[Rfam]
RNA sequence: AAUACCUUUAAUUCUGGUCCAGAGAGGCUGGGAAGGAAAAUAGAUAACUUAGUAAUAGUAUGACUAUAUUUAUCAUAGCUAUAGUUAUAUUACAUAGAGUAUAAUUCUGCCUUCCCUUAAAGGGAAGGCAUUUUUUAU
Dot-bracket structure: ..(.(((((....((((((......))))))))))).)...................(((((((((((.((.....)).))))))))))).................((((((((((...))))))))))........
Numbered sequence: 001a002a003u004a005c006c007u008u009u010a011a012u013u014c015u016g017g018u019c020c021a022g023a024g025a026g027g028c029u030g031g032g033a034a035g036g037a038a039a040a041u042a043g044a045u046a047a048c049u050u051a052g053u054a055a056u057a058g059u060a061u062g063a064c065u066a067u068a069u070u071u072a073u074c075a076u077a078g079c080u081a082u083a084g085u086u087a088u089a090u091u092a093c094a095u096a097g098a099g100u101a102u103a104a105u106u107c108u109g110c111c112u113u114c115c116c117u118u119a120a121a122g123g124g125a126a127g128g129c130a131u132u133u134u135u136u137a138u
Stems, first nucleotide, its partner, number of pairs: 003038001005036005014031006058090011070078002108130010

Shown here is a 138-nucleotide sequence from Clostridium niameyense, a member of the family "PyrR binding site". NCBI's taxonomy places the organism under Bacteria, Bacillota, Clostridia, Eubacteriales, Clostridium. It scores 64 bits against the family's covariance model. It is annotated as a cis-regulatory element. Its family is annotated with pyrimidine nucleobase biosynthetic process and pyrimidine nucleobase transport in the Gene Ontology.